RNA sequence: AUGCGUGUAGGGUGGAGAUGCACAGAAGCCGAGCAGCGUAGAUUCACCAAGACGCUUCAUUUCGUCCGCUGCCGAUGCGCCUGAUUCCUCCUCCUGAUUUAUUGCUUCUGUGUCAUCACAGAAUGCAGGAGACGUCCGUCGCGACCCCGGCCAAGAGCCCACCGUCGCUAGACAUUGGAACGAUUUACGACCGUUUCUGACGCGCCUGACACCGACCUGAACGUCGUGUGUACCGAACGCGGCUUCCGGCAGCCCCGGAAACCA
Numbered sequence: 001a002u003g004c005g006u007g008u009a010g011g012g013u014g015g016a017g018a019u020g021c022a023c024a025g026a027a028g029c030c031g032a033g034c035a036g037c038g039u040a041g042a043u044u045c046a047c048c049a050a051g052a053c054g055c056u057u058c059a060u061u062u063c064g065u066c067c068g069c070u071g072c073c074g075a076u077g078c079g080c081c082u083g084a085u086u087c088c089u090c091c092u093c094c095u096g097a098u099u100u101a102u103u104g105c106u107u108c109u110g111u112g113u114c115a116u117c118a119c120a121g122a123a124u125g126c127a128g129g130a131g132a133c134g135u136c137c138g139u140c141g142c143g144a145c146c147c148c149g150g151c152c153a154a155g156a157g158c159c160c161a162c163c164g165u166c167g168c169u170a171g172a173c174a175u176u177g178g179a180a181c182g183a184u185u186u187a188c189g190a191c192c193g194u195u196u197c198u199g200a201c202g203c204g205c206c207u208g209a210c211a212c213c214g215a216c217c218u219g220a221a222c223g224u225c226g227u228g229u230g231u232a233c234c235g236a237a238c239g240c241g242g243c244u245u246c247c248g249g250c251a252g253c254c255c256c257g258g259a260a261a262c263c264a
Stems, first nucleotide, its partner, number of pairs: 014091004023083003028078002030074002036069003051066004092130005133202004138173003141168004149159003177197006209231004213226004242262001244260005
Dot-bracket structure: .............((((.....(((..((((....(((............((((........)))))))...))..))..)))....))))(((((.............................)))))..((((.(((((((....(((.....))).....))))..)))...((((((.........)))))).))))......((((((((......)))).))))..........(.(((((.......))))).)..
rne-II RNA: a 264-nucleotide RNA from Pseudomonas mangrovi. Pairs were carried over by alignment from the consensus structure, which is taken from published work.